[Rfam]
RNA sequence: UGUUAUCGAGGUUGGAAAGGCUCCCGACGCUCCUCUUAUGAGGAACCUGAGAUGCAGGAUACGCCGCCCUGCCGACAACA
Numbered sequence: 001u002g003u004u005a006u007c008g009a010g011g012u013u014g015g016a017a018a019g020g021c022u023c024c025c026g027a028c029g030c031u032c033c034u035c036u037u038a039u040g041a042g043g044a045a046c047c048u049g050a051g052a053u054g055c056a057g058g059a060u061a062c063g064c065c066g067c068c069c070u071g072c073c074g075a076c077a078a079c080a
Stems, first nucleotide, its partner, number of pairs: 001080004006075003011028005019065003030049001031044004054072005

skipping-rope RNA: an 80-nucleotide RNA.